RNA sequence: GUCGGUCUUCGGUAGUGGCCUUUCGGCAGGGUUGGUCCGCCGGUGGGCUUCGAUCGAUGACCGCC
Numbered sequence: 001g002u003c004g005g006u007c008u009u010c011g012g013u014a015g016u017g018g019c020c021u022u023u024c025g026g027c028a029g030g031g032u033u034g035g036u037c038c039g040c041c042g043g044u045g046g047g048c049u050u051c052g053a054u055c056g057a058u059g060a061c062c063g064c065c
Stems, first nucleotide, its partner, number of pairs: 001065001003063005009057005017049003021045001023043005029037002
RNA: Actino-pnp RNA